Nucleotides: 068
Base pairs, nucleotide, nucleotide: 002065003064004063006038007037008036009035010034013028014027015026016025043055044054045053
Number, partner (000 for none) and nucleotide at each position: 001000a002065u003064a004063c005000u006038a007037u008036g009035a010034u011000g012000g013028u014027u015026g016025c017000a018000u019000a020000g021000u022000u023000c024000a025016g026015c027014a028013g029000a030000u031000c032000a033000a034010a035009u036008c037007a038006u039000g040000a041000a042000g043055a044054g045053a046000u047000u048000u049000a050000c051000c052000c053045u054044u055043u056000g057000u058000g059000u060000g061000a062000u063004g064003u065002a066000a067000a068000a